[Rfam]
The record is an 89-nucleotide sequence from Paenibacillus darwinianus, which matches "c-di-GMP-I riboswitch aptamer" in Rfam.
RNA sequence: AACCGAUAAAGGCAUACCUGCCGAAAGGCAGGGACGCAAAACCUCAGGCCUACGGAGUCAAAUCAUUCUAUGGCGGCUGGGUUACCGAA
Number, nucleotide and partner (000 for none) at each position: 001a000002a000003c000004c000005g000006a000007u000008a000009a000010a000011g000012g037013c036014a000015u000016a000017c032018c031019u030020g029021c028022c027023g000024a000025a000026a000027g022028g021029c020030a019031g018032g017033g000034a000035c000036g013037c012038a000039a000040a083041a082042c081043c080044u000045c079046a078047g077048g074049c073050c072051u000052a000053c000054g000055g068056a067057g066058u065059c000060a000061a000062a000063u000064c000065a058066u057067u056068c055069u000070a000071u000072g050073g049074c048075g000076g000077c047078u046079g045080g043081g042082u041083u040084a000085c000086c000087g000088a000089a000